[Rfam]
RNA: mir-9242 microRNA precursor family
RNA sequence: GGCCUCCCUCUGUGGGGCGAUCAAUCUGGGGGCCCCGUGAUCAAUCGCCCCGCAGAGGGAAGCC
Dot-bracket structure: (((.(((((((((((((((((..(((..((....))..)))..))))))))))))))))).)))